[Rfam]
This 136-nucleotide RNA from Micromonospora polyrhachis belongs to the Rfam family "Group II catalytic intron D1-D4-4". It scores 98 bits against the family's covariance model. For this family Rfam cites "The ins and outs of group II introns" (Bonen and Vogel, Trends Genet, 2001). Rfam's curators write: Group II introns are found in rRNA, tRNA and mRNA of organelles in fungi, plants and protists, and also in mRNA in bacteria.

RNA sequence: CUGCCGGUGGGAGUCCGGUCCGGGUAGCUGCCAGGAGGCCCGGUAGCAGGCUGCCGGCGUCGAGGGGAAACGCUCGGCGUCGAAGCGCAGCGUCGAAAGCCCUAUUGGGGGAGCGACUGGGCGGUCCGUAGCAUGA
Numbered sequence: 001c002u003g004c005c006g007g008u009g010g011g012a013g014u015c016c017g018g019u020c021c022g023g024g025u026a027g028c029u030g031c032c033a034g035g036a037g038g039c040c041c042g043g044u045a046g047c048a049g050g051c052u053g054c055c056g057g058c059g060u061c062g063a064g065g066g067g068a069a070a071c072g073c074u075c076g077g078c079g080u081c082g083a084a085g086c087g088c089a090g091c092g093u094c095g096a097a098a099g100c101c102c103u104a105u106u107g108g109g110g111g112a113g114c115g116a117c118u119g120g121g122c123g124g125u126c127c128g129u130a131g132c133a134u135g136a
Base pairs, nucleotide, nucleotide: 020043021042022041023040024039050091051090052089053088054087055082056081057080058079059078060077064073066071101110102108113129114128115127